[Rfam]
RNA sequence: UCGCGUCGAGCGCCGUAGGCAGGAGCGGGGGACCCAAGGUAAGUGCCGCACCGGGCAGUUCGUCCGGAGUGGCUUGGGGUGAAGCCGUGCCUCUUCAGGGGCGCGGCCGGGCAACUCAACCGGCCCGAACCCGACAGCUCACCUCGCAGGCGUCGGUGAGGGGAUCC
Numbered sequence: 001u002c003g004c005g006u007c008g009a010g011c012g013c014c015g016u017a018g019g020c021a022g023g024a025g026c027g028g029g030g031g032a033c034c035c036a037a038g039g040u041a042a043g044u045g046c047c048g049c050a051c052c053g054g055g056c057a058g059u060u061c062g063u064c065c066g067g068a069g070u071g072g073c074u075u076g077g078g079g080u081g082a083a084g085c086c087g088u089g090c091c092u093c094u095u096c097a098g099g100g101g102c103g104c105g106g107c108c109g110g111g112c113a114a115c116u117c118a119a120c121c122g123g124c125c126c127g128a129a130c131c132c133g134a135c136a137g138c139u140c141a142c143c144u145c146g147c148a149g150g151c152g153u154c155g156g157u158g159a160g161g162g163g164a165u166c167c
Base pairs, nucleotide, nucleotide: 004152005151006150007149013022025147026146027145028144029143030142035076036075037074038073077132078131079130085106086105087104088103089102090101091100109126110125111124112123
RNA: c-di-AMP riboswitch aptamer (ydaO/yuaA leader)